[Rfam]
RNA sequence: GCUGCUCCGCUCCGGCGGUCUGCUAAAUCUCCCUCGCGCAGGUCCGGAAGCAUCCCGGGCCCAUUCUUGAAAGGAUGUCCUCAGCGCA
Number, nucleotide and partner (000 for none) at each position: 001g000002c018003u017004g016005c015006u014007c000008c000009g000010c000011u000012c000013c000014g006015g005016c004017g003018g002019u000020c000021u000022g000023c000024u000025a000026a000027a000028u000029c000030u000031c000032c000033c000034u000035c000036g087037c086038g085039c084040a000041g061042g060043u059044c058045c057046g056047g055048a000049a000050g000051c000052a000053u000054c000055c047056c046057g045058g044059g043060c042061c041062c077063a076064u075065u074066c073067u072068u000069g000070a000071a000072a067073g066074g065075a064076u063077g062078u000079c000080c000081u000082c000083a000084g039085c038086g037087c036088a000
RNA: ATPC RNA motif
Organism: Cyanobium usitatum